[Rfam]
RNA sequence: CAAAAAGCAGUGGUUUGUUUACUAUAUGAGCAGUCCUCUCGAAACUAUCAGGGAUAUAAAACUCAUUGUUUUUGGGUGAACCUAUGUUCUUUUUUUGUGACUGUAGGUUCAGUAAAUGAUGGAACAGUU
Numbered sequence: 001c002a003a004a005a006a007g008c009a010g011u012g013g014u015u016u017g018u019u020u021a022c023u024a025u026a027u028g029a030g031c032a033g034u035c036c037u038c039u040c041g042a043a044a045c046u047a048u049c050a051g052g053g054a055u056a057u058a059a060a061a062c063u064c065a066u067u068g069u070u071u072u073u074g075g076g077u078g079a080a081c082c083u084a085u086g087u088u089c090u091u092u093u094u095u096u097g098u099g100a101c102u103g104u105a106g107g108u109u110c111a112g113u114a115a116a117u118g119a120u121g122g123a124a125c126a127g128u129u
Base pairs, nucleotide, nucleotide: 005048007046012036015033016032017031064121065120066119067118068117069116070115077111078110079109080108081107082106083105
This 129-nucleotide sequence from Lathyrus oleraceus belongs to the Rfam family "Small nucleolar RNA snoR74". The base pairs follow the family's consensus structure, which was predicted with WAR. The family's RNA type in Rfam is H/ACA-box small nucleolar RNA. Its family is annotated with nucleolus and RNA processing in the Gene Ontology. The organism belongs to Lathyrus, within Eukaryota. For this family Rfam cites "Experimental RNomics: identification of 140 candidates for small non-messenger RNAs in the plant Arabidopsis thaliana" (Marker et al., Curr Biol, 2002).